[Rfam]
RNA sequence: CACUCAUAUAACUUAAGGGUUAUGUGGUGGGACUAUUAAAAAAAGUAGUCAGCUUAUUUGUCCUGCGGAAGCAAAUACAUAUAGAGGUCUGAAAGUGUGUGAGUAGCAAAACGAAAGCACAAAUCAGC
Numbered sequence: 001c002a003c004u005c006a007u008a009u010a011a012c013u014u015a016a017g018g019g020u021u022a023u024g025u026g027g028u029g030g031g032a033c034u035a036u037u038a039a040a041a042a043a044a045g046u047a048g049u050c051a052g053c054u055u056a057u058u059u060g061u062c063c064u065g066c067g068g069a070a071g072c073a074a075a076u077a078c079a080u081a082u083a084g085a086g087g088u089c090u091g092a093a094a095g096u097g098u099g100u101g102a103g104u105a106g107c108a109a110a111a112c113g114a115a116a117g118c119a120c121a122a123a124u125c126a127g128c
Stems, first nucleotide, its partner, number of pairs: 001029002004027007012019002064073003087128001089127004097120004106112001